[Rfam]
The record is an 83-nucleotide sequence from Piliocolobus tephrosceles, which matches "mir-621 microRNA precursor family" in Rfam. Its family is annotated with RISC complex and miRNA-mediated post-transcriptional gene silencing in the Gene Ontology.
RNA sequence: GAAGGGGCUGAGUGGUGGGCAGUGCUGCUAUGCUUUGAUGAAGACCUAGGUGGCUGGCAACAGCUCUUACCUUUUGUCUCUGG
Numbered sequence: 001g002a003a004g005g006g007g008c009u010g011a012g013u014g015g016u017g018g019g020c021a022g023u024g025c026u027g028c029u030a031u032g033c034u035u036u037g038a039u040g041a042a043g044a045c046c047u048a049g050g051u052g053g054c055u056g057g058c059a060a061c062a063g064c065u066c067u068u069a070c071c072u073u074u075u076g077u078c079u080c081u082g083g
Base pairs, nucleotide, nucleotide: 003081004080005079006078007077008076010074011073012072014071015070016069017068018067019066023062024061026059027058028057029056030055032054033053034052039048040047
The match comes from Rfam's covariance-model search (90 bits).